[Rfam]
RNA sequence: GGCCUUGCCUCAUGGCAAAACAUACACUUUAGCAGAAUAGCUAGUAGAUGAUGACAAUGGGUCAUCCGGUCGAAAGUUAGGACAUCAUAAAAGCAGACAA
Numbered sequence: 001g002g003c004c005u006u007g008c009c010u011c012a013u014g015g016c017a018a019a020a021c022a023u024a025c026a027c028u029u030u031a032g033c034a035g036a037a038u039a040g041c042u043a044g045u046a047g048a049u050g051a052u053g054a055c056a057a058u059g060g061g062u063c064a065u066c067c068g069g070u071c072g073a074a075a076g077u078u079a080g081g082a083c084a085u086c087a088u089a090a091a092a093g094c095a096g097a098c099a100a
Base pairs, nucleotide, nucleotide: 006017007016008015009014039078040077041076047071050066051065052064053063054062055061
RT-17 RNA: a 100-nucleotide RNA sequence. By type it is a small RNA.